Source information:
Shown here is a 356-nucleotide RNA sequence from Bacillus licheniformis, a member of the family "transfer-messenger RNA". About the family: Bacterial tmRNA, also known as 10Sa RNA or SsrA, is named for its dual tRNA and mRNA-like properties. The organism belongs to Bacillus licheniformis, within Bacteria. It is one of the family's seed sequences. For this family Rfam cites "Phylogenetic analysis of tmRNA secondary structure" (Williams and Bartel, RNA, 1996). Rfam classes the family as a non-coding RNA gene.
[Rfam]
RNA sequence: GGGGACGUUACGGAUUCGACAGGGACGGAUCGAGCUUGAGCUGCGAGCCGAGAGGCGAUCUCGUAAAAACGCACCUAAAUAUAACUGGCAAAUCUAACCAGAACUUAGCACUAGCUGCCUAAUUAGCGCAGCGAGCUCUUGCCCGCAUCGCCUAUGUGCCGGUUAAGAGCCCAUAACGAAGUAGGCUACGCUUGCGCCCCCGUCUGAGGGCGCAGGAAGAGACUCAUCAGACUAGCUCUCCUAGGGCCCGCCCGCAGGCACGAAGAUGAGCGAAACUAAAUAUGCAGGGCUACGCUCGUAGACGCUGAAGCAAUCGACGUUUCUGGACGUGGGUUCGACUCCCACCGUCUCCAUCU
Numbered sequence: 001g002g003g004g005a006c007g008u009u010a011c012g013g014a015u016u017c018g019a020c021a022g023g024g025a026c027g028g029a030u031c032g033a034g035c036u037u038g039a040g041c042u043g044c045g046a047g048c049c050g051a052g053a054g055g056c057g058a059u060c061u062c063g064u065a066a067a068a069a070c071g072c073a074c075c076u077a078a079a080u081a082u083a084a085c086u087g088g089c090a091a092a093u094c095u096a097a098c099c100a101g102a103a104c105u106u107a108g109c110a111c112u113a114g115c116u117g118c119c120u121a122a123u124u125a126g127c128g129c130a131g132c133g134a135g136c137u138c139u140u141g142c143c144c145g146c147a148u149c150g151c152c153u154a155u156g157u158g159c160c161g162g163u164u165a166a167g168a169g170c171c172c173a174u175a176a177c178g179a180a181g182u183a184g185g186c187u188a189c190g191c192u193u194g195c196g197c198c199c200c201c202g203u204c205u206g207a208g209g210g211c212g213c214a215g216g217a218a219g220a221g222a223c224u225c226a227u228c229a230g231a232c233u234a235g236c237u238c239u240c241c242u243a244g245g246g247c248c249c250g251c252c253c254g255c256a257g258g259c260a261c262g263a264a265g266a267u268g269a270g271c272g273a274a275a276c277u278a279a280a281u282a283u284g285c286a287g288g289g290c291u292a293c294g295c296u297c298g299u300a301g302a303c304g305c306u307g308a309a310g311c312a313a314u315c316g317a318c319g320u321u322u323c324u325g326g327a328c329g330u331g332g333g334u335u336c337g338a339c340u341c342c343c344a345c346c347g348u349c350u351c352c353a354u355c356u
Base pairs, nucleotide, nucleotide: 001352002351003350004349005348006347007346020325021324022323023322024321025320026319027318034311035310036309037308039306040305041304044298045297046296047295048294049063050062051061052060053059055072056071057070114132115131116130117129118128119126120125135172138169139168140167141164143162144161145159146158147157148156150186151185152184153183154182155181192216193215197209198208202232203231204230205229206228207227235271236270237268239266240265242263246259247258248257250290251289252288253287329345330344331343332342333341